[Rfam]
RNA sequence: CUAGAAAAAUACAAACUAAAGGAAACUUUAGGUCGUAAAAGCACCUGUUGACCGCUAACAGUCUAUGGCAGCGGGGUUAUUAAGG
Number, nucleotide and partner (000 for none) at each position: 001c000002u000003a000004g000005a000006a000007a000008a000009a000010u000011a036012c035013a000014a000015a000016c031017u030018a029019a028020a027021g026022g000023a000024a000025a000026c021027u020028u019029u018030a017031g016032g000033u000034c000035g012036u011037a000038a000039a078040a077041g000042c075043a000044c074045c073046u000047g069048u068049u067050g063051a062052c061053c000054g000055c000056u000057a000058a000059c000060a000061g052062u051063c050064u000065a000066u000067g049068g048069c047070a000071g000072c000073g045074g044075g042076g000077u040078u039079a000080u000081u000082a000083a000084g000085g000
A member of the RNA family "c-di-GMP-I-UAU riboswitch aptamer", 85 nucleotides long. The base pairs follow the family's consensus structure, which is taken from published work. For this family Rfam cites "Bioinformatic analysis of riboswitch structures uncovers variant classes with altered ligand specificity" (Weinberg et al., Proc Natl Acad Sci U S A, 2017).